[Rfam]
Source information
The family of this 88-nucleotide RNA from Salibacterium qingdaonense is "BsrC". It scores 62 bits against the family's covariance model. Taxonomically the source falls in Salibacterium (Bacteria, Bacillati, Bacilli, Caryophanales). For this family Rfam cites "Novel small RNA-encoding genes in the intergenic regions of Bacillus subtilis" (Saito et al., Gene, 2008). Rfam 15.1 lists 572 matches to the family in 553 species. About the family: The 301 nucleotide sequence from Kouji Nakamura has been trimmed to a highly conserved ~85 nucleotide long core to form this family.
Nucleotides: 088
Base pairs, nucleotide, nucleotide: 035068036067037066040063041062043058044057045056046055047054
Number, partner (000 for none) and nucleotide at each position: 001000g002000a003000u004000g005000c006000a007000u008000a009000a010000a011000a012000c013000a014000a015000c016000a017000a018000a019000a020000g021000c022000c023000c024000u025000u026000c027000c028000u029000g030000c031000u032000c033000u034000u035068u036067c037066g038000u039000c040063c041062u042000u043058g044057c045056g046055g047054u048000c049000c050000u051000u052000a053000a054047a055046c056045c057044g058043c059000u060000c061000c062041a063040g064000u065000g066037u067036g068035a069000a070000u071000u072000g073000a074000u075000c076000u077000a078000c079000u080000g081000c082000u083000g084000u085000a086000u087000u088000u